RNA sequence: UGAUACCAGGGUCAAAAGGUUCUGCGUUUCAUGCUCACAUGAAAAAGCAUGACUUUGGGACCCGUAAAAACAUGAGAACGCAACCCGAUUAGGGUGGAAUUCGAAUGUUUUUAGGAUUGUGAGAGCUCGAAGAGCGUAACAAUCCGUGUAUCA
Number, nucleotide and partner (000 for none) at each position: 001u153002g152003a151004u150005a149006c148007c000008a000009g000010g062011g061012u060013c059014a000015a000016a056017a055018g054019g053020u052021u051022c000023u049024g048025c047026g000027u045028u044029u042030c041031a040032u039033g038034c000035u000036c000037a000038c033039a032040u031041g030042a029043a000044a028045a027046a000047g025048c024049a023050u000051g021052a020053c019054u018055u017056u016057g000058g000059g013060a012061c011062c010063c000064g000065u000066a112067a111068a110069a109070a108071c107072a106073u105074g000075a000076g102077a101078a100079c000080g000081c000082a000083a095084c094085c093086c092087g000088a000089u000090u000091a000092g086093g085094g084095u083096g000097g000098a000099a000100u078101u077102c076103g000104a000105a073106u072107g071108u070109u069110u068111u067112u066113a000114g145115g144116a143117u142118u141119g140120u139121g000122a000123g000124a000125g135126c134127u133128c132129g000130a000131a000132g128133a127134g126135c125136g000137u000138a000139a120140c119141a118142a117143u116144c115145c114146g000147u000148g006149u005150a004151u003152c002153a001
Shown here is a 153-nucleotide sequence from Blautia liquoris, a member of the family "Clostridiales-1 RNA". The source organism's lineage runs through Bacteria, Bacillota, Lachnospirales, Lachnospiraceae and Blautia. Rfam classes the family as a small RNA.